[Rfam]
Rfam assigns this 397-nucleotide RNA from a Streptomycetaceae bacterium to the family "Bacterial RNase P class A".
The source organism's lineage runs through Bacteria, Bacillati, Actinomycetes, Kitasatosporales and Streptomycetaceae.
The match comes from Rfam's covariance-model search (284 bits).
RNA sequence: CGAGUCGGCCGGGCGGUCGCGUCAUCACUGCGGGCCCGCGGUGAUGCCGAGGAACGUCCGGACUCCACAGGGCAGGGUGGUUGUUAACGGCAACCCGGGGCGACCCGCGGGAAAGUGCCACAGAAAACAGACCGCCCGACUCCAUCGGAGAUCGGGUAAGGGUGAAACGGUGGGGUAAGAGCCCACCAGCACCCCGGGUGACCGGGGUGGCUCGGUAAACCCCACCCGGAGCAAGGCCAAGAGGGACCCUCGGGUCCUGCGCAGGCGUUCGAGGGCGGCCCGCCCGAGCCUGCGGGUAGGCCGCUGGAGCGCACCGGCGACGGUGCGCCGAGAUGGAUGGCCGCCGCGCCCUCCUCGGAGGGCGGCACAAAAUCCGGCGUACAGGCCGACUCGUCCG
Dot-bracket structure: ((((((((((((((((((.((.(((((((((......))))))))).))....[[[.[[[[[((((...[[[[.((((((((((.....)))))(((((....)))).)((...(((((............(((((((((((.....))).))))))..)).......((((((.......)))))).(((((((((....)))))))).)..)))..)))))))))))))...((((......................((((((......((((.]]]]))))..)))))).....))))......((((((((....))))))))..........)))))))...........................]]]]]]]].).))))))))))....